[Rfam]
RNA: Singlet oxygen resistance RNA X
Organism: Lutimaribacter saemankumensis
RNA sequence: UCCCGUCGCAUAUCCGGGUUAUGAUAUGCACCUCCCUGUUGGACUUGGCCCGGGCUUUGCCCGGGUCUUUUUU
Dot-bracket structure: .......(((((((........))))))).................((((((((.....))))))))......
Numbered sequence: 001u002c003c004c005g006u007c008g009c010a011u012a013u014c015c016g017g018g019u020u021a022u023g024a025u026a027u028g029c030a031c032c033u034c035c036c037u038g039u040u041g042g043a044c045u046u047g048g049c050c051c052g053g054g055c056u057u058u059g060c061c062c063g064g065g066u067c068u069u070u071u072u073u
Stems, first nucleotide, its partner, number of pairs: 008029007047067008